Shown here is a 132-nucleotide sequence from Octodon degus, a member of the family "Small nucleolar RNA SNORA38". Rfam links the family to the GO terms nucleolus, Cajal body and RNA processing. From the family's description: ACA38 is a member of the H/ACA class of snoRNA that guide the sites of modification of uridines to pseudouridines. Pairs were carried over by alignment from the consensus structure, which was predicted with RNAfold. It scores 120 bits against the family's covariance model.
RNA sequence: CCCUCUUACAAAGGUGUGUCUUGGGUUCCUCGUCUUUAGACAUGUAAGAGUUAGAGGCAGAAAAAAUUGUGGAUUUGGUGACUUCUGGGCCAGCUUGCUCCCUGCAGGCUCCAGAUCAACCAUCUCACAUAA
Number, nucleotide and partner (000 for none) at each position: 001c000002c057003c056004u055005c054006u053007u000008a000009c000010a000011a000012a000013g000014g000015u044016g043017u042018g041019u040020c039021u038022u000023g000024g030025g029026u000027u000028c000029c025030u024031c000032g000033u000034c000035u000036u000037u000038a021039g020040a019041c018042a017043u016044g015045u000046a000047a000048g000049a000050g000051u000052u000053a006054g005055a004056g003057g002058c000059a000060g000061a000062a000063a000064a000065a000066a000067u000068u000069g000070u000071g125072g124073a123074u000075u122076u000077g000078g000079u000080g000081a000082c000083u000084u000085c000086u000087g000088g000089g000090c000091c000092a110093g109094c108095u107096u106097g105098c104099u000100c000101c000102c000103u000104g098105c097106a096107g095108g094109c093110u092111c000112c000113a000114g000115a000116u000117c000118a000119a000120c000121c000122a075123u073124c072125u071126c000127a000128c000129a000130u000131a000132a000